[Rfam]
RNA: c-di-GMP-I riboswitch aptamer
Organism: Thalassotalea algicola
RNA sequence: CGCAAGAAACGGCAAGGUACCUGAAAAGGUAUUACGCAAAGCAACCGGUCUAAGGGUUUAUAACUUAAUAUAAACUACGAUAGCGGGGCUACCUAA
Numbered sequence: 001c002g003c004a005a006g007a008a009a010c011g012g013c014a015a016g017g018u019a020c021c022u023g024a025a026a027a028g029g030u031a032u033u034a035c036g037c038a039a040a041g042c043a044a045c046c047g048g049u050c051u052a053a054g055g056g057u058u059u060a061u062a063a064c065u066u067a068a069u070a071u072a073a074a075c076u077a078c079g080a081u082a083g084c085g086g087g088g089c090u091a092c093c094u095a096a
Stems, first nucleotide, its partner, number of pairs: 012037002017032006040090003045086003048081003055075001057073002